The family of this 161-nucleotide RNA sequence from Tindallia californiensis is "glmS glucosamine-6-phosphate activated ribozyme aptamer". The organism belongs to Tindallia, within Bacteria.
[Rfam]
RNA sequence: UAGCUAUACCAAGCGCCUGGACUCAUAGAGUUAAUGAUGAGUUGACGAGGGACAGGGAGUAUCGACUGAUCGGCGGAUGCCCUGCGGUGACUUCACCACCGAAAAAGAAGCGACAAAGCUGGCAAGUGAUUGGCAGUACAAAGUGCUUCGGGUGAAUACCU
Dot-bracket structure: ...................(((((((..........))))))).........(((((....((((....))))......)))))(((((.......))))).....(((((.......(((.(((....))).)))........)))))............